The record is a 90-nucleotide sequence from Flavobacterium cellulosilyticum, which matches "Flavo-1 RNA" in Rfam.
A search with the family's covariance model found it, with a score of 52 bits.
The organism belongs to Flavobacterium, within Bacteria.

RNA sequence: UUUGCGUUAAGGAUAGUAGUGAAAAUACUUUUAUUAUAUAAAGCGAUAGCGGAAUAUAAUAAAAGAUUGUAACGAAUAGCCUGACCCGCU
Numbered sequence: 001u002u003u004g005c006g007u008u009a010a011g012g013a014u015a016g017u018a019g020u021g022a023a024a025a026u027a028c029u030u031u032u033a034u035u036a037u038a039u040a041a042a043g044c045g046a047u048a049g050c051g052g053a054a055u056a057u058a059a060u061a062a063a064a065g066a067u068u069g070u071a072a073c074g075a076a077u078a079g080c081c082u083g084a085c086c087c088g089c090u
Stems, first nucleotide, its partner, number of pairs: 010082003014078002019073002024068003030063010